[Rfam]
Nucleotides: 364
Stems, first nucleotide, its partner, number of pairs: 004364003007360001008315007016036006041358003045355005050231005055072006078226005083104006105119001106117004120221002123160004131151004138145002167219002169215003184203008235251003255284007286299005321339007
Number, partner (000 for none) and nucleotide at each position: 001000g002000a003000u004364u005363u006362c007360g008315g009314g010313u011312a012311a013310u014309c015000g016036c017035g018034g019033u020032c021031u022000a023000c024000c025000u026000u027000g028000a029000g030000u031021a032020g033019g034018c035017u036016g037000a038000g039000g040000a041358a042357a043356g044000u045355c046354c047353a048352g049351g050231c051230u052229u053228g054227c055072a056071c057070a058069g059068g060067c061000u062000g063000a064000g065000a066000u067060g068059c069058c070057u071056g072055u073000a074000g075000u076000g077000a078226u079225c080224g081223u082222a083104c084103u085102u086101a087100c088099u089000g090000a091000a092000a093000a094000a095000a096000u097000a098000a099088g100087g101086u102085a103084a104083g105119g106117c107116a108115c109114c110000a111000a112000u113000u114109g115108g116107u117106g118000a119105c120221g121220g122000c123160g124159g125158a126157u127000a128000a129000a130000a131151g132150a133149g134148c135000u136000a137000a138145g139144g140000g141000a142000a143000a144139c145138u146000a147000u148134g149133c150132u151131u152000g153000a154000g155000u156000a157126g158125u159124c160123c161000u162000g163000a164000a165000a166000a167219g168218u169215g170214c171213c172000a173000c174000a175000g176000u177000g178000a179000c180000g181000a182000a183000g184203u185202a186201a187200u188199g189198u190197u191196g192000g193000a194000a195000a196191c197190g198189g199188c200187a201186u202185u203184a204000g205000u206000g207000g208000a209000a210000c211000g212000c213171g214170g215169u216000a217000a218168a219167c220121c221120c222082u223081g224080c225079g226078a227054g228053c229052a230051g231050g232000u233000a234000a235251c236250c237249c238000a239000a240000a241000c242000u243000u244000u245000g246000g247000u248000a249237g250236g251235g252000g253000c254000g255284c256283u257282u258281c259280a260279u261278g262000a263000c264000g265000g266000a267000a268000a269000u270000g271000a272000a273000c274000a275000a276000a277000u278261c279260a280259u281258g282257g283256g284255g285000g286299c287298g288297a289296g290295u291000g292000a293000a294000a295290a296289c297288u298287c299286g300000g301000a302000g303000a304000u305000a306000g307000a308000u309014g310013a311012u312011u313010a314009c315008c316000a317000c318000c319000g320000a321339g322338a323337u324336c325335g326334g327333u328000a329000c330000c331000u332000g333327a334326c335325c336324g337323g338322u339321c340000g341000a342000c343000g344000u345000a346000c347000g348000g349000a350000a351049c352048u353047u354046g355045g356043c357042u358041u359000a360007u361000a362006g363005a364004g

The record is a 364-nucleotide RNA from Ligilactobacillus agilis, which matches "Bacterial RNase P class B" in Rfam.
By type it is a ribozyme.
Its Rfam clan is "RNaseP clan".
It scores 312 bits against the family's covariance model.
The base pairs follow the family's consensus structure, which is taken from published work.
Rfam describes the family as follows. Ribonuclease P (RNase P) is a ubiquitous endoribonuclease, found in archaea, bacteria and eukarya as well as chloroplasts and mitochondria. Its best characterised activity is the generation of mature 5'-ends of tRNAs by cleaving the 5'-leader elements of precursor-tRNAs.